A member of the RNA family "Small nucleolar RNA SNORD34" from Gambusia affinis, 74 nucleotides long.
Rfam's curators write: snoRNA U34 is found in intron 5 of the ribosomal protein L13a gene in humans.
On this family, see Galardi et al., Mol Cell Biol 2002: "Purified box C/D snoRNPs are able to reproduce site-specific 2'-O-methylation of target RNA in vitro".
The family is grouped with related families in Rfam's "SNORD34 clan".
Taxonomically the source falls in Gambusia (Eukaryota, Bilateria, Deuterostomia, Ovalentaria).
It is annotated as a C/D-box small nucleolar RNA.
RNA sequence: UGUUGUGAUGUUCUGCCAUGUUACCCACAUUGUUUUUAAAAUCUAAGAUUAGAAGGCAAAUUGCUGACACACCA
Numbered sequence: 001u002g003u004u005g006u007g008a009u010g011u012u013c014u015g016c017c018a019u020g021u022u023a024c025c026c027a028c029a030u031u032g033u034u035u036u037u038a039a040a041a042u043c044u045a046a047g048a049u050u051a052g053a054a055g056g057c058a059a060a061u062u063g064c065u066g067a068c069a070c071a072c073c074a
Stems, first nucleotide, its partner, number of pairs: 001074002004071003